Streptomyces sRNA 4677: a 245-nucleotide RNA sequence from Streptomyces griseicoloratus. About the family: Located in the intergenic region between anti-sigma factor SCO4677 gene and a putative regulatory protein gene SCO4676. scr4677 expression requires the SCO4677 activity and scr4677 sRNA itself seem to affect the levels of the SCO4676-associated transcripts. Rfam 15.1 lists 563 matches to the family in 285 species. A reference for the family is Hindra et al. (2014), "Complex intra-operonic dynamics mediated by a small RNA in Streptomyces coelicolor", PLoS One. Lineage of the source: Bacteria > Actinomycetota > Kitasatosporales > Streptomycetaceae > Streptomyces. Rfam classes the family as a small RNA.
RNA sequence: CGCUCCGGUGCUGCGGGCGACUACCCCGUAAAGGACUCCUGGGGAAGAAAGAACCCCACCAAGCCCCACCCCUCCCGCCCGUGGCGCGGUCUCACUCGGGCGGGUGAACAUCAUCGGUUGGGCUGGAUUUCGGAUCCCCCAACUCCCUUACGCUCAGCGCAACAACCGCUGACAUAUGUCGGCCCCCGUCGGGGAGUAGCGAUCCCCGCGAGGGCCUGACCACCGAGGAAGGUCCAAUCUUCCUG
Numbered sequence: 001c002g003c004u005c006c007g008g009u010g011c012u013g014c015g016g017g018c019g020a021c022u023a024c025c026c027c028g029u030a031a032a033g034g035a036c037u038c039c040u041g042g043g044g045a046a047g048a049a050a051g052a053a054c055c056c057c058a059c060c061a062a063g064c065c066c067c068a069c070c071c072c073u074c075c076c077g078c079c080c081g082u083g084g085c086g087c088g089g090u091c092u093c094a095c096u097c098g099g100g101c102g103g104g105u106g107a108a109c110a111u112c113a114u115c116g117g118u119u120g121g122g123c124u125g126g127a128u129u130u131c132g133g134a135u136c137c138c139c140c141a142a143c144u145c146c147c148u149u150a151c152g153c154u155c156a157g158c159g160c161a162a163c164a165a166c167c168g169c170u171g172a173c174a175u176a177u178g179u180c181g182g183c184c185c186c187c188g189u190c191g192g193g194g195a196g197u198a199g200c201g202a203u204c205c206c207c208g209c210g211a212g213g214g215c216c217u218g219a220c221c222a223c224c225g226a227g228g229a230a231g232g233u234c235c236a237a238u239c240u241u242c243c244u245g
Stems, first nucleotide, its partner, number of pairs: 007224004016079004092107006122158005181216005187210003191206004227243005